Shown here is a 265-nucleotide RNA sequence from Candidatus Syntrophocurvum alkaliphilum, a member of the family "Bacterial large signal recognition particle RNA".
RNA sequence: CCGUGCUAGAUGGAGAGGUAGCGGUGCUCUGUAACCUGCAAUCCGCUAUAGCAGGAUUGAAUUCCUAGCUGAGGAUAUAUCUUGUAAGGACUGGCUUAAACAGGUGGUGUUGAAAUUUGGGUCCGGCGCAACGAAACACCUUGAACCGUGUCAGGUCCGGAAGGAAGCAGCACUAAGAGGUCCAUUUCGUGUGACGCAGGGUAGCCUGGAUGGAGCUAGCUGUUUAAGUAACGCUUGGAAGGUAUAUUCGAAGCUAGGUGCACGG
Numbered sequence: 001c002c003g004u005g006c007u008a009g010a011u012g013g014a015g016a017g018g019u020a021g022c023g024g025u026g027c028u029c030u031g032u033a034a035c036c037u038g039c040a041a042u043c044c045g046c047u048a049u050a051g052c053a054g055g056a057u058u059g060a061a062u063u064c065c066u067a068g069c070u071g072a073g074g075a076u077a078u079a080u081c082u083u084g085u086a087a088g089g090a091c092u093g094g095c096u097u098a099a100a101c102a103g104g105u106g107g108u109g110u111u112g113a114a115a116u117u118u119g120g121g122u123c124c125g126g127c128g129c130a131a132c133g134a135a136a137c138a139c140c141u142u143g144a145a146c147c148g149u150g151u152c153a154g155g156u157c158c159g160g161a162a163g164g165a166a167g168c169a170g171c172a173c174u175a176a177g178a179g180g181u182c183c184a185u186u187u188c189g190u191g192u193g194a195c196g197c198a199g200g201g202u203a204g205c206c207u208g209g210a211u212g213g214a215g216c217u218a219g220c221u222g223u224u225u226a227a228g229u230a231a232c233g234c235u236u237g238g239a240a241g242g243u244a245u246a247u248u249c250g251a252a253g254c255u256a257g258g259u260g261c262a263c264g265g
Stems, first nucleotide, its partner, number of pairs: 001265006009058003012030004017025001019023001035055005064258007073249005079243005085237004092230002096227006104220002106217003115211008123200002126197003129191002132189005138181005148173004156165003
The match comes from Rfam's covariance-model search (228 bits).
Taxonomically the source falls in Candidatus Syntrophocurvum (Bacteria, Bacillota, Eubacteriales, Syntrophomonadaceae).
Pairs were carried over by alignment from the consensus structure, which is taken from published work.
By type it is a non-coding RNA gene.
Its family is annotated with signal recognition particle, plasma membrane targeting and SRP-dependent cotranslational protein targeting to membrane, signal sequence recognition in the Gene Ontology.